[Rfam]
RNA sequence: CAUUCAUGUAGAGGCGCGAUACUUAUGAGUAGAAUUUAGGAUUCUUACAAGAGAAGUUGACUACUUUCAAAAGGAAGCAUCGCCGAAGGGUAAUGUGCUUGUACACUUUAUUCCUGGGUGUAUAGUGAAUAGCUAUACAACUGUCACCUUUUGCUAUACAAUAGGUGGUGUGCUACUGUGUUU
Dot-bracket structure: .......((((....(((((.(((.......(((..(((.....................)))..)))......))).)))))...(((((((.(((......))).)))).)))((.((((((((.....)))))))).)).((((((.............))))))....)))).......

The record is a 183-nucleotide sequence from Zhenhengia yiwuensis, which matches "Lysine riboswitch aptamer" in Rfam. The base pairs follow the family's consensus structure, which is taken from published work.